[Rfam]
RNA: ASpks TB sRNA
RNA sequence: CUUGACCGACCCCAGCAGCAGCGGCUCGUCGCGGUCCUGGCCGUAGGUGGCCAGCAGCGCCUGUGCCUC
Numbered sequence: 001c002u003u004g005a006c007c008g009a010c011c012c013c014a015g016c017a018g019c020a021g022c023g024g025c026u027c028g029u030c031g032c033g034g035u036c037c038u039g040g041c042c043g044u045a046g047g048u049g050g051c052c053a054g055c056a057g058c059g060c061c062u063g064u065g066c067c068u069c
Base pairs, nucleotide, nucleotide: 014026015025016024032059033058037054038053039052041050042049043048